[Rfam]
RNA sequence: UCGGAUGAGACUAGUAGGAGAGAGCUGGGAAAACCAGACGCCGAAGGAGAAAAUCCCUUGAAUCGCCUUUCAAGGGGGGAAACUCUCAGGCAAAGGUACUACUAGAUGACGAUACUCUGGAGAGUUUCUCUUAAAUGAGAACACCAAAGGGGAAGCCGGUUACGGCGAAUCUCUCAGGUUAAAGGACAGAGAA
Numbered sequence: 001u002c003g004g005a006u007g008a009g010a011c012u013a014g015u016a017g018g019a020g021a022g023a024g025c026u027g028g029g030a031a032a033a034c035c036a037g038a039c040g041c042c043g044a045a046g047g048a049g050a051a052a053a054u055c056c057c058u059u060g061a062a063u064c065g066c067c068u069u070u071c072a073a074g075g076g077g078g079g080a081a082a083c084u085c086u087c088a089g090g091c092a093a094a095g096g097u098a099c100u101a102c103u104a105g106a107u108g109a110c111g112a113u114a115c116u117c118u119g120g121a122g123a124g125u126u127u128c129u130c131u132u133a134a135a136u137g138a139g140a141a142c143a144c145c146a147a148a149g150g151g152g153a154a155g156c157c158g159g160u161u162a163c164g165g166c167g168a169a170u171c172u173c174u175c176a177g178g179u180u181a182a183a184g185g186a187c188a189g190a191g192a193a
Base pairs, nucleotide, nucleotide: 001112002111003110011105012104013103014102015101016100017099022039025037026036027035040091041090042089046087047085048084049083054077055076056075057074058073059072060071061070062069115191116190117189118188119187124142126141127140128139129138143179144178145177149175151172152171153170
Rfam assigns this 193-nucleotide RNA from Desulfosporosinus metallidurans to the family "glycine-GGAnGA riboswitch aptamer". Rfam links the family to the GO term glycine biosynthetic process. The organism belongs to Desulfosporosinus, within Bacteria. For this family Rfam cites "Bioinformatic analysis of riboswitch structures uncovers variant classes with altered ligand specificity" (Weinberg et al., Proc Natl Acad Sci U S A, 2017). glycine-GGAnGA riboswitch is a variant of glycine riboswitch that have in common a U69A change.